[Rfam]
RNA: Glycine riboswitch aptamer
RNA sequence: CUACGCCGCGCGGGAGAGUCCCGUCAUACGGGCGCCGAAGGGGCAACCUCCCCGGAACCUCUCAGGCACCAGGACCGUGUGGACAGG
Numbered sequence: 001c002u003a004c005g006c007c008g009c010g011c012g013g014g015a016g017a018g019u020c021c022c023g024u025c026a027u028a029c030g031g032g033c034g035c036c037g038a039a040g041g042g043g044c045a046a047c048c049u050c051c052c053c054g055g056a057a058c059c060u061c062u063c064a065g066g067c068a069c070c071a072g073g074a075c076c077g078u079g080u081g082g083a084c085a086g087g
Base pairs, nucleotide, nucleotide: 006082007081008080009079010078011077012076013075020032021031022030023029034067035066036065037063038062041061042060043059047055048054